Record summary: HgcC family RNA: a 126-nucleotide RNA sequence from Methanocaldococcus jannaschii. Rfam describes the family as follows. The HgcC ncRNA gene was identified computationally in AT-rich hyperthermophiles. The genes were named hgcA through hgcG ('high GC'). The literature on the family includes a 2002 paper in Proc Natl Acad Sci U S A by Klein et al., "Noncoding RNA genes identified in AT-rich hyperthermophiles". The family has 5 seed sequences and 10 matches in Rfam 15.1. Rfam classes the family as a non-coding RNA gene.
Nucleotides: 126
Stems, first nucleotide, its partner, number of pairs: 003022006037072005048061005073087005088106004094101002
Number, partner (000 for none) and nucleotide at each position: 001000g002000a003022g004021g005020g006019u007018a008017g009000c010000u011000c012000u013000g014000a015000c016000u017008c018007u019006g020005c021004c022003c023000g024000a025000u026000g027000a028000c029000a030000c031000c032000a033000a034000c035000c036000u037072g038071c039070c040069c041068u042000g043000u044000g045000a046000c047000c048061u049060a050059u051058c052057g053000g054000c055000g056000a057052c058051g059050a060049u061048a062000a063000g064000u065000a066000g067000c068041a069040g070039g071038g072037u073087g074086u075085u076084c077083c078000g079000u080000g081000u082000u083077g084076g085075a086074a087073c088106c089105u090104c091103c092000a093000c094101c095100c096000u097000u098000u099000a100095g101094g102000u103091g104090g105089a106088g107000a108000g109000a110000a111000g112000a113000u114000c115000a116000g117000u118000u119000a120000a121000a122000a123000u124000u125000c126000c